[Rfam]
RNA sequence: GUGCAGGUGAUGACAAGUAACAGUAUGACAAUUCAUGAUACUGUAAACGCUUUCUGAUGCA
Numbered sequence: 001g002u003g004c005a006g007g008u009g010a011u012g013a014c015a016a017g018u019a020a021c022a023g024u025a026u027g028a029c030a031a032u033u034c035a036u037g038a039u040a041c042u043g044u045a046a047a048c049g050c051u052u053u054c055u056g057a058u059g060c061a
Stems, first nucleotide, its partner, number of pairs: 002061004012053002016051003021043006
Notes: Small nucleolar RNA Z39: a 61-nucleotide RNA sequence from Eleutherodactylus coqui. On this family, see Chen et al., Nucleic Acids Res 2003: "The high diversity of snoRNAs in plants: identification and comparative study of 120 snoRNA genes from Oryza sativa". Gene Ontology terms of the family: RNA processing and nucleolus. The source organism's lineage runs through Eukaryota, Chordata, Amphibia, Eleutherodactylidae and Eleutherodactylus.